[Rfam]
RNA sequence: UAGCUGUAAUGGCUCAAUGGGUGAAGCACAUUCUGCUCGCAGCCCACCCCUUCUUCGUCAUCCAACAACGCGUGCCCAGUUCGAACCCGGUGGAGGCCGCCCACUCGCUUCGGUAACGAGCGAUUUCGCUGGCGCGGCCUUGAGCUUCUGAGGAAUCCUUCAGCCGAGCAAUCGGGCAGAGAGUUUCGGGCCAUGGGGUGGCGGCGCUGGAAUACAUGUGUUGUUGGCGGGGUUGGGUUUGUGAGGUUUGUGGGAUGUACGACGCUUUUUU
Numbered sequence: 001u002a003g004c005u006g007u008a009a010u011g012g013c014u015c016a017a018u019g020g021g022u023g024a025a026g027c028a029c030a031u032u033c034u035g036c037u038c039g040c041a042g043c044c045c046a047c048c049c050c051u052u053c054u055u056c057g058u059c060a061u062c063c064a065a066c067a068a069c070g071c072g073u074g075c076c077c078a079g080u081u082c083g084a085a086c087c088c089g090g091u092g093g094a095g096g097c098c099g100c101c102c103a104c105u106c107g108c109u110u111c112g113g114u115a116a117c118g119a120g121c122g123a124u125u126u127c128g129c130u131g132g133c134g135c136g137g138c139c140u141u142g143a144g145c146u147u148c149u150g151a152g153g154a155a156u157c158c159u160u161c162a163g164c165c166g167a168g169c170a171a172u173c174g175g176g177c178a179g180a181g182a183g184u185u186u187c188g189g190g191c192c193a194u195g196g197g198g199u200g201g202c203g204g205c206g207c208u209g210g211a212a213u214a215c216a217u218g219u220g221u222u223g224u225u226g227g228c229g230g231g232g233u234u235g236g237g238u239u240u241g242u243g244a245g246g247u248u249u250g251u252g253g254g255a256u257g258u259a260c261g262a263c264g265c266u267u268u269u270u271u
Stems, first nucleotide, its partner, number of pairs: 002014003017269001019267005026260001028258005036246002038243003041238001043236002046233005052227001063226012076210005081204003085199004090194004096133004101128001103125001105123005111118002140144001147190006156183001158181003165174003

The record is a 271-nucleotide RNA from Teratosphaeria destructans, which matches "Fungal signal recognition particle RNA" in Rfam. Pairs were carried over by alignment from the consensus structure, which is taken from published work. The source organism's lineage runs through Eukaryota, Dikarya, Ascomycota, Mycosphaerellales and Teratosphaeria. Clan: SRP clan. The family's RNA type in Rfam is non-coding RNA gene. Rfam links the family to the GO terms signal recognition particle, endoplasmic reticulum targeting, SRP-dependent cotranslational protein targeting to membrane, signal sequence recognition and signal recognition particle, plasma membrane targeting. The match comes from Rfam's covariance-model search (111 bits).